This 76-nucleotide sequence from Psychrilyobacter sp. S5 belongs to the Rfam family "S4-Fusobacteriales ribosomal protein leader".
The match comes from Rfam's covariance-model search (64 bits).
The source organism's lineage runs through Bacteria, Fusobacteriota, Fusobacteriales, Fusobacteriaceae and Psychrilyobacter.
RNA sequence: CUGUAAAGACAUGUUGACCUGUAGAGGCGAUACUUUUGGGUGAAAAUUCGGAGUAAUCAAAAGGCAUGUCGAGGAA
Numbered sequence: 001c002u003g004u005a006a007a008g009a010c011a012u013g014u015u016g017a018c019c020u021g022u023a024g025a026g027g028c029g030a031u032a033c034u035u036u037u038g039g040g041u042g043a044a045a046a047u048u049c050g051g052a053g054u055a056a057u058c059a060a061a062a063g064g065c066a067u068g069u070c071g072a073g074g075a076a
Stems, first nucleotide, its partner, number of pairs: 008070006014030003018027003033063007
By type it is a cis-regulatory leader.